Overview
The record is a 50-nucleotide RNA from Tomitella fengzijianii, which matches "L31-Actinobacteria ribosomal protein leader" in Rfam. It is annotated as a cis-regulatory leader.

Nucleotides: 050
Base pairs, nucleotide, nucleotide: 003050004049005048007046008045009044010043015040016039017038018037019036020035021034022033023032
Number, partner (000 for none) and nucleotide at each position: 001000c002000c003050g004049g005048u006000a007046c008045c009044g010043g011000u012000u013000c014000a015040c016039g017038u018037c019036g020035u021034c022033g023032g024000c025000c026000c027000g028000a029000c030000u031000g032023c033022c034021g035020g036019c037018g038017g039016c040015g041000a042000c043010c044009c045008g046007g047000g048005a049004c050003c